[Rfam]
RNA sequence: UGAUCUCAAAUCAGGUAGGACUACCCGCUGAACUUAAGCAUAUCAAUAAGCGGAGGAAAAGAAACUAACAAGGAUUCCCCUAGUAACGGCGAGUGAAGCGGGAAGAGCUCAAAUUUAAAAUCUGGCAGUGUAUUCUGUCCGAGUUGUAGUCUAGAGAAGCAUCAUCCGUGCUGGACCAUGUACAAGUCUCUUGGAACAGAGCGUCAUAGAGGGUGAGAAUCCCGUCCUUGACAUGGACUCCCAGUACUUUGUGUUGUGCUCUCAACGAGUCGAGUUGUUUGGGAAUGCAGCUCAAAAUGGGUGGUAAAUUCCAUCUAAAGCUAAAUAUUGGCGAGAGACCGAUAGCGAACAAGUACCGUGAGGGAAAGAUGAAAAGCACUUUGGAGAGAGAGUUAAACAGUACGUGAAAUUGUUGAAAUGGAAA
Numbered sequence: 001u002g003a004u005c006u007c008a009a010a011u012c013a014g015g016u017a018g019g020a021c022u023a024c025c026c027g028c029u030g031a032a033c034u035u036a037a038g039c040a041u042a043u044c045a046a047u048a049a050g051c052g053g054a055g056g057a058a059a060a061g062a063a064a065c066u067a068a069c070a071a072g073g074a075u076u077c078c079c080c081u082a083g084u085a086a087c088g089g090c091g092a093g094u095g096a097a098g099c100g101g102g103a104a105g106a107g108c109u110c111a112a113a114u115u116u117a118a119a120a121u122c123u124g125g126c127a128g129u130g131u132a133u134u135c136u137g138u139c140c141g142a143g144u145u146g147u148a149g150u151c152u153a154g155a156g157a158a159g160c161a162u163c164a165u166c167c168g169u170g171c172u173g174g175a176c177c178a179u180g181u182a183c184a185a186g187u188c189u190c191u192u193g194g195a196a197c198a199g200a201g202c203g204u205c206a207u208a209g210a211g212g213g214u215g216a217g218a219a220u221c222c223c224g225u226c227c228u229u230g231a232c233a234u235g236g237a238c239u240c241c242c243a244g245u246a247c248u249u250u251g252u253g254u255u256g257u258g259c260u261c262u263c264a265a266c267g268a269g270u271c272g273a274g275u276u277g278u279u280u281g282g283g284a285a286u287g288c289a290g291c292u293c294a295a296a297a298u299g300g301g302u303g304g305u306a307a308a309u310u311c312c313a314u315c316u317a318a319a320g321c322u323a324a325a326u327a328u329u330g331g332c333g334a335g336a337g338a339c340c341g342a343u344a345g346c347g348a349a350c351a352a353g354u355a356c357c358g359u360g361a362g363g364g365a366a367a368g369a370u371g372a373a374a375a376g377c378a379c380u381u382u383g384g385a386g387a388g389a390g391a392g393u394u395a396a397a398c399a400g401u402a403c404g405u406g407a408a409a410u411u412g413u414u415g416a417a418a419u420g421g422a423a424a
Base pairs, nucleotide, nucleotide: 024055025053026052027051028050029049035042036041065072066071076103077102078101079100086094087093106322107321108320109319113150114149115148118145119144121142122141124139125138126137127136156263157262158260159259160258161257163256164255166253168247169246170245171244172243173242174241176236177235178234179233180232181231186202188201189200190199191198205209212222213221272293273292274291275290276289277288278287299316300315301314302313303312356363357362379390380389381388382387

A member of the RNA family "Eukaryotic large subunit ribosomal RNA" from Rhizoctonia solani, 424 nucleotides of a longer RNA. A search with the family's covariance model found it, with a score of 3148 bits. The family's consensus secondary structure is taken from published work. Taxonomically the source falls in Rhizoctonia (Eukaryota, Opisthokonta, Fungi, Agaricomycotina). On this family, see Yusupov et al., Science 2001: "Crystal structure of the ribosome at 5.5 A resolution". Its Rfam clan is "LSU clan".